The record is a 45-nucleotide sequence from Kitasatospora azatica, which matches "L31-Actinobacteria ribosomal protein leader" in Rfam. On this family, see Eckert and Weinberg, BMC Microbiol 2020: "Discovery of 20 novel ribosomal leader candidates in bacteria and archaea". The source organism's lineage runs through Bacteria, Actinomycetes, Kitasatosporales, Kitasatospora and Kitasatospora azatica. Rfam's curators put it in the seed alignment. Rfam classes the family as a cis-regulatory leader.
RNA sequence: UCGGCCCCGGUUCACGUGCGGCAUCCAAGCCGCCGACCCGGCGCC
Numbered sequence: 001u002c003g004g005c006c007c008c009g010g011u012u013c014a015c016g017u018g019c020g021g022c023a024u025c026c027a028a029g030c031c032g033c034c035g036a037c038c039c040g041g042c043g044c045c
Stems, first nucleotide, its partner, number of pairs: 003045003007041004015035002018033005